Rfam assigns this 93-nucleotide sequence from Nicotiana attenuata to the family "Small nucleolar RNA snoR109". Lineage of the source: Eukaryota > Streptophyta > Tracheophyta > Nicotianeae > Nicotiana. Gene Ontology terms of the family: RNA processing and nucleolus.
[Rfam]
RNA sequence: UGGCUGUAGCUAUAUGAAUAUAUUGGAGAAGUUUUACUGGCCGGUUGUUAUAUAAAUCUAUUGACAUAUCUGCUUACCGAACUUCUUACAUUA
Numbered sequence: 001u002g003g004c005u006g007u008a009g010c011u012a013u014a015u016g017a018a019u020a021u022a023u024u025g026g027a028g029a030a031g032u033u034u035u036a037c038u039g040g041c042c043g044g045u046u047g048u049u050a051u052a053u054a055a056a057u058c059u060a061u062u063g064a065c066a067u068a069u070c071u072g073c074u075u076a077c078c079g080a081a082c083u084u085c086u087u088a089c090a091u092u093a
Stems, first nucleotide, its partner, number of pairs: 026087008039074003043070003047065004
It scores 76 bits against the family's covariance model. Rfam classes the family as an H/ACA-box small nucleolar RNA.